The record is a 67-nucleotide RNA from Xenopus laevis, which matches "Small nucleolar RNA U2-30" in Rfam. A reference for the family is Tycowski et al. (2004), "Guide RNAs with 5' Caps and Novel Box C/D snoRNA-like Domains for Modification of snRNAs in Metazoa", Curr Biol. Rfam links the family to the GO terms RNA processing and nucleolus. A search with the family's covariance model found it, with a score of 61 bits. The family has 21 seed sequences and 664 matches in Rfam 15.1. Rfam classes the family as a C/D-box small nucleolar RNA.

[Rfam]
RNA sequence: GAGCAAUGAUGACAAUGACAUUACCCAGAUUAUAACCAUGAUGGUUUCUACACUUGAUCUGAGCUCA
Numbered sequence: 001g002a003g004c005a006a007u008g009a010u011g012a013c014a015a016u017g018a019c020a021u022u023a024c025c026c027a028g029a030u031u032a033u034a035a036c037c038a039u040g041a042u043g044g045u046u047u048c049u050a051c052a053c054u055u056g057a058u059c060u061g062a063g064c065u066c067a
Base pairs, nucleotide, nucleotide: 001066002065003064004063014031015030016027017026